[Rfam]
A member of the RNA family "7SK RNA" from Danionella cerebrum, 316 nucleotides long.
For this family Rfam cites "Transcription: surprising role for an elusive small nuclear RNA" (Blencowe, Curr Biol, 2002).
7SK was discovered as an abundant small nuclear RNA in the mid-70s but a possible function has only recently been suggested. Two independent studies have found that 7SK RNA binds the CDK9/cyclin T complex (known as elongation factor P-TEFb).
Pairs were carried over by alignment from the consensus structure, which is taken from published work.
RNA sequence: GGAUGUGAGGGCGAUCUGGCUGCGACAUCUGUCUCCCCAUUGAUCGCUAGGGUUGAUUCGGCUGAUCUGGCUGGCUAGGCGGGUGUCCCCUUCCUCCCUCACCGCUCCACAGCGAGUCCCUCCCGAAGCCCCGCGCUCGGUGAAGCGGACGUGCGCGCCCCGCGGAUCUACAUGAGCACCGCAGCGUCGCUCCUCCCCUGCUAGAACCUCCAAACAAGCUCAAGGCAACAUUUGUAGGCGAAGCGUAGGGAAGUCGAGCUCCGAGACUUCUGACACAUCCGAGUGAGGCGCUGCAUGUGGCAGUCUGCCUUUCUUU
Numbered sequence: 001g002g003a004u005g006u007g008a009g010g011g012c013g014a015u016c017u018g019g020c021u022g023c024g025a026c027a028u029c030u031g032u033c034u035c036c037c038c039a040u041u042g043a044u045c046g047c048u049a050g051g052g053u054u055g056a057u058u059c060g061g062c063u064g065a066u067c068u069g070g071c072u073g074g075c076u077a078g079g080c081g082g083g084u085g086u087c088c089c090c091u092u093c094c095u096c097c098c099u100c101a102c103c104g105c106u107c108c109a110c111a112g113c114g115a116g117u118c119c120c121u122c123c124c125g126a127a128g129c130c131c132c133g134c135g136c137u138c139g140g141u142g143a144a145g146c147g148g149a150c151g152u153g154c155g156c157g158c159c160c161c162g163c164g165g166a167u168c169u170a171c172a173u174g175a176g177c178a179c180c181g182c183a184g185c186g187u188c189g190c191u192c193c194u195c196c197c198c199u200g201c202u203a204g205a206a207c208c209u210c211c212a213a214a215c216a217a218g219c220u221c222a223a224g225g226c227a228a229c230a231u232u233u234g235u236a237g238g239c240g241a242a243g244c245g246u247a248g249g250g251a252a253g254u255c256g257a258g259c260u261c262c263g264a265g266a267c268u269u270c271u272g273a274c275a276c277a278u279c280c281g282a283g284u285g286a287g288g289c290g291c292u293g294c295a296u297g298u299g300g301c302a303g304u305c306u307g308c309c310u311u312u313c314u315u316u
Stems, first nucleotide, its partner, number of pairs: 001108003005102007013093002018090002024087010035074002037070003042067004046062003119165002122162001123140004128136002145154002189259003193253002196250006208240001210238002214235005281316003285311005290304005